[Rfam]
RNA sequence: UGACAUACGAGCACCCACCUCCUCCCGGGCGCCUCGUAUUCGGCGACGACACCGACCUCCUCCCCGGUGUCGUCGCCACAGAUUACGCAGCGCCGACCUCCUCCCCGGUGCUGUGUUUCAG
Numbered sequence: 001u002g003a004c005a006u007a008c009g010a011g012c013a014c015c016c017a018c019c020u021c022c023u024c025c026c027g028g029g030c031g032c033c034u035c036g037u038a039u040u041c042g043g044c045g046a047c048g049a050c051a052c053c054g055a056c057c058u059c060c061u062c063c064c065c066g067g068u069g070u071c072g073u074c075g076c077c078a079c080a081g082a083u084u085a086c087g088c089a090g091c092g093c094c095g096a097c098c099u100c101c102u103c104c105c106c107g108g109u110g111c112u113g114u115g116u117u118u119c120a121g
Stems, first nucleotide, its partner, number of pairs: 005039003009035002011032002014029002044075010085116011
A member of the RNA family "Alphaproteobacterial ar14" from Palleronia marisminoris, 121 nucleotides long. It scores 62 bits against the family's covariance model. The family's RNA type in Rfam is small RNA. Smr14C2 was renamed NfeR1 (Nodule Formation Efficiency RNA) highly expressed in salt stress and during the symbiotic interaction on legume roots.